[Rfam]
RNA sequence: CUUGAUCGAGCCCAGCCACAGCGGCUGUUCAGGCUCCCGGUCCUGCCCGUAAGUGGCGAGCAGUGCCUGGGCCUC
Numbered sequence: 001c002u003u004g005a006u007c008g009a010g011c012c013c014a015g016c017c018a019c020a021g022c023g024g025c026u027g028u029u030c031a032g033g034c035u036c037c038c039g040g041u042c043c044u045g046c047c048c049g050u051a052a053g054u055g056g057c058g059a060g061c062a063g064u065g066c067c068u069g070g071g072c073c074u075c
Stems, first nucleotide, its partner, number of pairs: 014026004034071003038065002043060002047056003

The family of this 75-nucleotide RNA from Streptomyces antibioticus is "ASpks TB sRNA". Rfam classes the family as an antisense RNA. The family's consensus secondary structure is taken from published work. The source organism's lineage runs through Bacteria, Actinomycetota, Actinomycetes, Kitasatosporales and Streptomyces.